Small nucleolar RNA SNORD16: a 100-nucleotide RNA from Chelonia mydas. Its family is annotated with RNA processing and nucleolus in the Gene Ontology. It scores 83 bits against the family's covariance model. The family's consensus secondary structure was predicted with PFOLD. The family has 5 seed sequences and 1,321 matches in Rfam 15.1. The literature on the family includes a 1993 paper in EMBO J by Fragapane et al., "A novel small nucleolar RNA (U16) is encoded inside a ribosomal protein intron and originates by processing of the pre-mRNA".
RNA sequence: UGCUAUGAUGAUAUAAUUUGCGUCUUAUCCAGUGUUCAGUGACAGUUGCCUGCUGUCAUCAUGCUGGCGCUGUUGAACUGAAGACAUUUGACUCUGAGCA
Dot-bracket structure: (((.................(.((.....(((((....(((((((.......))))).....))...))))).......)).)..............)))
Numbered sequence: 001u002g003c004u005a006u007g008a009u010g011a012u013a014u015a016a017u018u019u020g021c022g023u024c025u026u027a028u029c030c031a032g033u034g035u036u037c038a039g040u041g042a043c044a045g046u047u048g049c050c051u052g053c054u055g056u057c058a059u060c061a062u063g064c065u066g067g068c069g070c071u072g073u074u075g076a077a078c079u080g081a082a083g084a085c086a087u088u089u090g091a092c093u094c095u096g097a098g099c100a
Stems, first nucleotide, its partner, number of pairs: 001100003021083001023081002030072005039064002041057005